This 76-nucleotide RNA from a Micromonosporaceae bacterium belongs to the Rfam family "mraW RNA". The family has 45 seed sequences and 851 matches in Rfam 15.1. The family's consensus secondary structure is taken from published work. The match comes from Rfam's covariance-model search (51 bits).
[Rfam]
RNA sequence: CCGCGAGCUCUCCAGCCGCUGGCGUCCUGGCGCCUCUUCCCCGGUGCCAGGGAUCGAGCGGAUGGGGAGCUGGCGG
Numbered sequence: 001c002c003g004c005g006a007g008c009u010c011u012c013c014a015g016c017c018g019c020u021g022g023c024g025u026c027c028u029g030g031c032g033c034c035u036c037u038u039c040c041c042c043g044g045u046g047c048c049a050g051g052g053a054u055c056g057a058g059c060g061g062a063u064g065g066g067g068a069g070c071u072g073g074c075g076g
Base pairs, nucleotide, nucleotide: 001076002075003074004073007070008069010067011066012065013064014063016061017060018059019058020057022055025052026051027050028049029048030047031046032045033044